[Rfam]
RNA sequence: UACACAAAGCAUAUGAUGAGAAAGCACUGAAACUGACUCUGUAUGAAGGGCAUUCAGUCCAACACUGAGCUUUAUGUC
Numbered sequence: 001u002a003c004a005c006a007a008a009g010c011a012u013a014u015g016a017u018g019a020g021a022a023a024g025c026a027c028u029g030a031a032a033c034u035g036a037c038u039c040u041g042u043a044u045g046a047a048g049g050g051c052a053u054u055c056a057g058u059c060c061a062a063c064a065c066u067g068a069g070c071u072u073u074a075u076g077u078c
Stems, first nucleotide, its partner, number of pairs: 002077003006073005
RNA: Small nucleolar RNA SNORD69